[Rfam]
Selenocysteine insertion sequence 1: a 62-nucleotide RNA sequence from Esox lucius. A search with the family's covariance model found it, with a score of 40 bits. On this family, see Walczak et al., RNA 1996: "A novel RNA structural motif in the selenocysteine insertion element of eukaryotic selenoprotein mRNAs". It is annotated as a cis-regulatory element. About the family: The incorporation of selenocysteine into a protein sequence is directed by an in-frame UGA codon (usually a stop codon) within the coding region of the mRNA. Selenoprotein mRNAs contain a conserved secondary structure in the 3' UTR that is required for the distinction of UGA stop from UGA selenocysteine. Its family is annotated with selenocysteine incorporation in the Gene Ontology. Taxonomically the source falls in Esox (Eukaryota, Metazoa, Actinopterygii, Osteoglossocephalai). Pairs were carried over by alignment from the consensus structure, which is taken from published work.
RNA sequence: GAGUGAUUAUGAAGGUCUGUGUCUAAACUCUGUGGAGGGACCAGGCCGGAGGCUUUACACUC
Numbered sequence: 001g002a003g004u005g006a007u008u009a010u011g012a013a014g015g016u017c018u019g020u021g022u023c024u025a026a027a028c029u030c031u032g033u034g035g036a037g038g039g040a041c042c043a044g045g046c047c048g049g050a051g052g053c054u055u056u057a058c059a060c061u062c
Base pairs, nucleotide, nucleotide: 001062002061003060004059005058014047015046016045017044018043019042021041022040023039028037029036030035